[Rfam]
Nucleotides: 085
Stems, first nucleotide, its partner, number of pairs: 002084001004082003
Number, partner (000 for none) and nucleotide at each position: 001000c002084a003000c004082a005081g006080c007000g008000a009000u010000g011000a012000u013000g014000u015000g016000c017000c018000u019000a020000c021000a022000g023000a024000c025000c026000u027000g028000u029000a030000a031000u032000g033000a034000u035000u036000u037000u038000u039000g040000c041000g042000g043000a044000g045000a046000u047000g048000a049000u050000c051000g052000c053000a054000u055000a056000a057000u058000c059000a060000a061000a062000g063000a064000a065000c066000a067000u068000c069000u070000a071000a072000g073000g074000g075000a076000c077000u078000g079000a080006g081005u082004u083000a084002u085000u
Rfam assigns this 85-nucleotide sequence from Ananas comosus to the family "Small nucleolar RNA SNORD25".